[Rfam]
Notes:
This 74-nucleotide sequence from Polypterus senegalus belongs to the Rfam family "Small nucleolar RNA SNORD24".
RNA sequence: UGCAAAUGAUGUGAACGAAUAUUUGCUAUCUGAAGUACUGGUGCUGACACCAUUCCACCAAGAUCGCUGAUGCA
Numbered sequence: 001u002g003c004a005a006a007u008g009a010u011g012u013g014a015a016c017g018a019a020u021a022u023u024u025g026c027u028a029u030c031u032g033a034a035g036u037a038c039u040g041g042u043g044c045u046g047a048c049a050c051c052a053u054u055c056c057a058c059c060a061a062g063a064u065c066g067c068u069g070a071u072g073c074a
Stems, first nucleotide, its partner, number of pairs: 001074004

Description:
It scores 72 bits against the family's covariance model. The organism belongs to Polypterus, within Eukaryota.